RNA sequence: GCCACAGACAGGGGGAGCACCGCGACGGUGCUGAGAGUGCGGGUGAGCCGCAGACCCUCCGAACCUGAUCCGGUCAGCACCGGCGUAGGGAGUCACACGAUGAGGCG
Numbered sequence: 001g002c003c004a005c006a007g008a009c010a011g012g013g014g015g016a017g018c019a020c021c022g023c024g025a026c027g028g029u030g031c032u033g034a035g036a037g038u039g040c041g042g043g044u045g046a047g048c049c050g051c052a053g054a055c056c057c058u059c060c061g062a063a064c065c066u067g068a069u070c071c072g073g074u075c076a077g078c079a080c081c082g083g084c085g086u087a088g089g090g091a092g093u094c095a096c097a098c099g100a101u102g103a104g105g106c107g
Stems, first nucleotide, its partner, number of pairs: 007094003010058004017031005038052005064089004070083004
Rfam assigns this 107-nucleotide sequence from Nocardioides anomalus to the family "TPP riboswitch aptamer (THI element)". The source organism's lineage runs through Bacteria, Actinomycetota, Actinomycetes, Propionibacteriales and Nocardioides. Vitamin B(1) in its active form thiamin pyrophosphate (TPP) is an essential coenzyme that is synthesised by coupling of pyrimidine and thiazole moieties in bacteria.